This 103-nucleotide RNA sequence from Trema orientale belongs to the Rfam family "MIR390 microRNA precursor family". A search with the family's covariance model found it, with a score of 93 bits. The family has 16 seed sequences and 649 matches in Rfam 15.1. Rfam links the family to the GO terms miRNA-mediated post-transcriptional gene silencing and RISC complex. Lineage of the source: Eukaryota > Streptophyta > Embryophyta > Gunneridae > Trema.

[Rfam]
RNA sequence: UGGAAGAAUCUGUUAAGCUCAGGAGGGAUAGCACCAGAUUGUGGUAUCUUUCUUUUUUACUCAUGUCUAGCGCUAUCCAUCCUGAGUUUCAUGGCUUCUUCUU
Numbered sequence: 001u002g003g004a005a006g007a008a009u010c011u012g013u014u015a016a017g018c019u020c021a022g023g024a025g026g027g028a029u030a031g032c033a034c035c036a037g038a039u040u041g042u043g044g045u046a047u048c049u050u051u052c053u054u055u056u057u058u059a060c061u062c063a064u065g066u067c068u069a070g071c072g073c074u075a076u077c078c079a080u081c082c083u084g085a086g087u088u089u090c091a092u093g094g095c096u097u098c099u100u101c102u103u
Stems, first nucleotide, its partner, number of pairs: 010094001016088009026078007034070001